[Rfam]
RNA sequence: GGAAUUUUUUUCGAUAUAAAACACUCAUGUCGAUAAAAAACGGAUUUAAACCUUUU
Dot-bracket structure: ..........(((((((.........))))))).......................

Plastid-atpF group II-D1 intron: a 56-nucleotide RNA from Amborella trichopoda. NCBI's taxonomy places the organism under Eukaryota, Tracheophyta, Magnoliopsida, Amborellaceae, Amborella. Rfam's curators write: Plastid atpF is a non-coding RNA (ncRNA) recognised in plastids. It has been reported in the intron group II-D1 region of ATP synthase (atpF) genes. The literature on the family includes a 2023 paper in Plant Commun by Richter et al., "Retrograde signaling in plants: A critical review focusing on the GUN pathway and beyond". Its family is annotated with Group II intron splicing in the Gene Ontology. The base pairs follow the family's consensus structure, which was predicted with LocARNA.